[Rfam]
Bacterial RNase P class A: a 348-nucleotide sequence from Lachnospiraceae bacterium XPB1003. The family's consensus secondary structure is taken from published work. The match comes from Rfam's covariance-model search (304 bits). Taxonomically the source falls in Lachnospiraceae (Bacteria, Bacillota, Clostridia, Lachnospirales).
RNA sequence: GAAGCGGAACGGAUGAUCGCAUGCGCAAGCGUGAGGAAAGUCCGGGCUUCACAGGGCAGGAUGCCGGAUAACGUCCGGCGGAGGCGACUCCCGGGAAAGUGCAACAGAAAACAAACAGCCGCGCAAACGGUAAUGGUGAAAAGGCAGUGUAAGAGACUACCGGUCUGACGGUAACGGCAGACGCAUUGUAAACCCCAUCCGAAGCAAGACCAAACAGAGGACUAUGGGCCGGCCCGGUCCGUCUUCAGGUAGGUCGCUAAAGCCUGGUGGUAACAUCAGGAUCAGACAGAUGAUCAUCUCGGCGCGAAAGCGCUAUGACAGAACCCGGCUUACAGUUCCGCUUUUAUU
Numbered sequence: 001g002a003a004g005c006g007g008a009a010c011g012g013a014u015g016a017u018c019g020c021a022u023g024c025g026c027a028a029g030c031g032u033g034a035g036g037a038a039a040g041u042c043c044g045g046g047c048u049u050c051a052c053a054g055g056g057c058a059g060g061a062u063g064c065c066g067g068a069u070a071a072c073g074u075c076c077g078g079c080g081g082a083g084g085c086g087a088c089u090c091c092c093g094g095g096a097a098a099g100u101g102c103a104a105c106a107g108a109a110a111a112c113a114a115a116c117a118g119c120c121g122c123g124c125a126a127a128c129g130g131u132a133a134u135g136g137u138g139a140a141a142a143g144g145c146a147g148u149g150u151a152a153g154a155g156a157c158u159a160c161c162g163g164u165c166u167g168a169c170g171g172u173a174a175c176g177g178c179a180g181a182c183g184c185a186u187u188g189u190a191a192a193c194c195c196c197a198u199c200c201g202a203a204g205c206a207a208g209a210c211c212a213a214a215c216a217g218a219g220g221a222c223u224a225u226g227g228g229c230c231g232g233c234c235c236g237g238u239c240c241g242u243c244u245u246c247a248g249g250u251a252g253g254u255c256g257c258u259a260a261a262g263c264c265u266g267g268u269g270g271u272a273a274c275a276u277c278a279g280g281a282u283c284a285g286a287c288a289g290a291u292g293a294u295c296a297u298c299u300c301g302g303c304g305c306g307a308a309a310g311c312g313c314u315a316u317g318a319c320a321g322a323a324c325c326c327g328g329c330u331u332a333c334a335g336u337u338c339c340g341c342u343u344u345u346a347u348u
Base pairs, nucleotide, nucleotide: 001344002343003342004341005340006339007338008337009336010335011333012298013297014296015295016294017293018292020033021032022031023030024029038331039330040329042328043327044326045325046324047204048203049202050201054235055234056233057232059200060199061198062197063196064078065077066076067075068074079093080091081090082089083088094195095194099193100192101189102188103187116135117134118131119130120129121128143161144160146158147157148156162184163182164181165180166179167178169176170175208255209254210253211252217246218245219244220243221242222241226240227239228238229237230236263280264279265278266277267276268275269274